A member of the RNA family "mir-2060 microRNA precursor family" from Branchiostoma belcheri, 94 nucleotides long.
Rfam 15.1 lists 3,696 matches to the family in 4 species.
Rfam links the family to the GO terms RISC complex and miRNA-mediated post-transcriptional gene silencing.
It scores 72 bits against the family's covariance model.

Nucleotides: 094
Base pairs, nucleotide, nucleotide: 005084008081009080010079018075019074020073021072022071023070024069026067027066028065029064030063031062032061034055036053037052038051
Number, partner (000 for none) and nucleotide at each position: 001000g002000u003000u004000u005084u006000a007000a008081u009080g010079u011000g012000u013000g014000u015000g016000g017000a018075u019074g020073g021072u022071g023070u024069u025000c026067a027066g028065c029064a030063c031062c032061a033000a034055g035000g036053a037052c038051a039000g040000g041000u042000c043000u044000g045000u046000u047000u048000u049000a050000a051038u052037g053036u054000g055034u056000g057000u058000g059000g060000a061032u062031g063030g064029u065028g066027u067026u068000c069024a070023g071022c072021a073020c074019c075018a076000a077000g078000g079010a080009c081008a082000g083000g084005g085000u086000a087000g088000a089000u090000a091000g092000c093000c094000a